A member of the RNA family "Plant signal recognition particle RNA", 303 nucleotides long.

RNA sequence: GGCCUAGCAACGUGGGCCUGUAACCCAAGUGGGGGCAUGUGGGAAAUGGGACUUUAGUUCGGCCCAUUGGAUCGGAUCCAGUGUUAGCUGCUUGCUGGGCUGCCCAUUCCAAGCCGAGAGUUGAGCUGUGUGAGCCGGACGAAGGUCUGGCUUGGUCAGCUCCUAAAGCGGAGGGCAAUGCGUGAGGCUGGUUUCACAGAGCAGCGACAACCUCCCGCUCUCGGCAGUGGAAGGAUAACGGGCCGGUGCUGCUUGGACCCACCAUGGUUCACUGAGCUGACUCUUAAUAGGACCAUUUCUUUU
Numbered sequence: 001g002g003c004c005u006a007g008c009a010a011c012g013u014g015g016g017c018c019u020g021u022a023a024c025c026c027a028a029g030u031g032g033g034g035g036c037a038u039g040u041g042g043g044a045a046a047u048g049g050g051a052c053u054u055u056a057g058u059u060c061g062g063c064c065c066a067u068u069g070g071a072u073c074g075g076a077u078c079c080a081g082u083g084u085u086a087g088c089u090g091c092u093u094g095c096u097g098g099g100c101u102g103c104c105c106a107u108u109c110c111a112a113g114c115c116g117a118g119a120g121u122u123g124a125g126c127u128g129u130g131u132g133a134g135c136c137g138g139a140c141g142a143a144g145g146u147c148u149g150g151c152u153u154g155g156u157c158a159g160c161u162c163c164u165a166a167a168g169c170g171g172a173g174g175g176c177a178a179u180g181c182g183u184g185a186g187g188c189u190g191g192u193u194u195c196a197c198a199g200a201g202c203a204g205c206g207a208c209a210a211c212c213u214c215c216c217g218c219u220c221u222c223g224g225c226a227g228u229g230g231a232a233g234g235a236u237a238a239c240g241g242g243c244c245g246g247u248g249c250u251g252c253u254u255g256g257a258c259c260c261a262c263c264a265u266g267g268u269u270c271a272c273u274g275a276g277c278u279g280a281c282u283c284u285u286a287a288u289a290g291g292a293c294c295a296u297u298u299c300u301u302u303u
Base pairs, nucleotide, nucleotide: 001018002017003016004015005014006013024033025032026031039303041301042300043299044298045297046296047295048294049293052290053289054287055286056285057282059280060279061278062277065274066273068271069270070269071268072267073266074260075259077257078256079255080254081253083252085251086250087249089248090247095246096245097244098243100241101240102239104234105233107232108231109230110229111228113225114224115223116222117221118220119219120218121217123162124161125160126159127158128157131154132153133152134151135150136149137148138147139146140145163168170215171214172213173212174211181206182205183204188199189198190197